[Rfam]
Nucleotides: 093
Base pairs, nucleotide, nucleotide: 001093002092003091004090005089006088007087012027013026014025016023017022030044031043032042033041049067050066051065052064053063070084071083072082073081
Number, partner (000 for none) and nucleotide at each position: 001093g002092g003091g004090a005089g006088c007087g008000g009000a010000u011000g012027g013026g014025g015000u016023g017022c018000u019000g020000g021000u022017g023016c024000c025014c026013c027012u028000c029000c030044c031043g032042g033041u034000c035000u036000u037000c038000a039000a040000a041033a042032c043031c044030g045000a046000g047000u048000g049067g050066g051065c052064g053063a054000c055000a056000c057000g058000g059000g060000u061000u062000g063053u064052c065051g066050c067049c068000g069000g070084u071083g072082g073081g074000u075000u076000c077000g078000a079000u080000u081073c082072c083071c084070a085000c086000a087007c088006g089005c090004u091003c092002c093001c
A member of the RNA family "Selenocysteine transfer RNA" from Alicyclobacillaceae bacterium I2511, 93 nucleotides long. Rfam links the family to the GO term triplet codon-amino acid adaptor activity. The family is grouped with related families in Rfam's "tRNA clan".